About this RNA:
The family of this 70-nucleotide sequence from Noviherbaspirillum humi is "int-alpA RNA". The family has 167 seed sequences and 577 matches in Rfam 15.1. The source organism's lineage runs through Bacteria, Pseudomonadati, Burkholderiales, Oxalobacteraceae and Noviherbaspirillum. From the family's description: Acidobacteria (1 example), Planctomycetes (1 example), Proteobacteria.

RNA sequence: CGCCAGACUAUCCCGACGGGGAGAAAAGCAGGUUCCUUCGCCUGCAUGUCUGGCGCCCCAAUUACGAAGG
Numbered sequence: 001c002g003c004c005a006g007a008c009u010a011u012c013c014c015g016a017c018g019g020g021g022a023g024a025a026a027a028g029c030a031g032g033u034u035c036c037u038u039c040g041c042c043u044g045c046a047u048g049u050c051u052g053g054c055g056c057c058c059c060a061a062u063u064a065c066g067a068a069g070g
Stems, first nucleotide, its partner, number of pairs: 001055008011022004028045005035070006